[Rfam]
RNA sequence: UAACCAUCCAGAGCGACUGAGAGACCUGGCUCGUUGACGUCGCAGCAACCGUCCUUUAGCAGGAGCGGUGCUAAGGCCAGGACCGAUGGAGA
Numbered sequence: 001u002a003a004c005c006a007u008c009c010a011g012a013g014c015g016a017c018u019g020a021g022a023g024a025c026c027u028g029g030c031u032c033g034u035u036g037a038c039g040u041c042g043c044a045g046c047a048a049c050c051g052u053c054c055u056u057u058a059g060c061a062g063g064a065g066c067g068g069u070g071c072u073a074a075g076g077c078c079a080g081g082a083c084c085g086a087u088g089g090a091g092a
Stems, first nucleotide, its partner, number of pairs: 001092001004089005013043005021032003026080004044072004049068002052064003076084001
Dot-bracket structure: (..(((((....(((((...(((..[[[[)))......)))))((((.((.(((.......)))..))))))...(]]]]...))))))..)

The record is a 92-nucleotide sequence from Glutamicibacter sp. BW77, which matches "SAM riboswitch aptamer (S box leader)" in Rfam.
The organism belongs to Glutamicibacter, within Bacteria.